[Rfam]
RNA: Small nucleolar RNA SNORA5
Organism: Chauna torquata
RNA sequence: CGCAGCCUCGUCAAAUUCGGCACCCGCCUCUGCCGUGGCGGGGACCGGCCCGGGGGCUGCCACAGCAUCGUCUGUGCUUCAUGGGCCCCGUGUCCCUGCCGUGGGACCGCGGGGAUAAAAAUGCGCCACGGACACCG
Numbered sequence: 001c002g003c004a005g006c007c008u009c010g011u012c013a014a015a016u017u018c019g020g021c022a023c024c025c026g027c028c029u030c031u032g033c034c035g036u037g038g039c040g041g042g043g044a045c046c047g048g049c050c051c052g053g054g055g056g057c058u059g060c061c062a063c064a065g066c067a068u069c070g071u072c073u074g075u076g077c078u079u080c081a082u083g084g085g086c087c088c089c090g091u092g093u094c095c096c097u098g099c100c101g102u103g104g105g106a107c108c109g110c111g112g113g114g115a116u117a118a119a120a121a122u123g124c125g126c127c128a129c130g131g132a133c134a135c136c137g
Stems, first nucleotide, its partner, number of pairs: 002060004018047003023042006074129003077125001079123001086114005